The family of this 119-nucleotide RNA sequence from Bacillus thermotolerans is "ylbH leader".
The match comes from Rfam's covariance-model search (83 bits).
The literature on the family includes a 2004 paper in Proc Natl Acad Sci U S A by Barrick et al., "New RNA motifs suggest an expanded scope for riboswitches in bacterial genetic control".
[Rfam]
RNA sequence: AUAAAAAAUGCCCUGCCGAAAAUUCAGCAGGGACCUUCUAUGUCUAAAUCAGACAGAAGGCAAAGGGAGAGGAGAAACUGGAGAAAGAACUCAUUGGGGAAUAUAAGCCUUCUCCGUGA
Numbered sequence: 001a002u003a004a005a006a007a008a009u010g011c012c013c014u015g016c017c018g019a020a021a022a023u024u025c026a027g028c029a030g031g032g033a034c035c036u037u038c039u040a041u042g043u044c045u046a047a048a049u050c051a052g053a054c055a056g057a058a059g060g061c062a063a064a065g066g067g068a069g070a071g072g073a074g075a076a077a078c079u080g081g082a083g084a085a086a087g088a089a090c091u092c093a094u095u096g097g098g099g100a101a102u103a104u105a106a107g108c109c110u111u112c113u114c115c116g117u118g119a
Stems, first nucleotide, its partner, number of pairs: 011032006018025002034066004042054004079116004085111003090107002093104001